[Rfam]
RNA sequence: CAGCGGACGACCGCUGUCGUAUAGAAGUUCACGGGACGGCCCGU
Numbered sequence: 001c002a003g004c005g006g007a008c009g010a011c012c013g014c015u016g017u018c019g020u021a022u023a024g025a026a027g028u029u030c031a032c033g034g035g036a037c038g039g040c041c042c043g044u
Stems, first nucleotide, its partner, number of pairs: 001016006031044005
Shown here is a 44-nucleotide RNA from Microbulbifer thermotolerans, a member of the family "Guanidine-II riboswitch aptamer (mini-ykkC)". The source organism's lineage runs through Bacteria, Pseudomonadota, Gammaproteobacteria, Microbulbiferaceae and Microbulbifer. It scores 32 bits against the family's covariance model.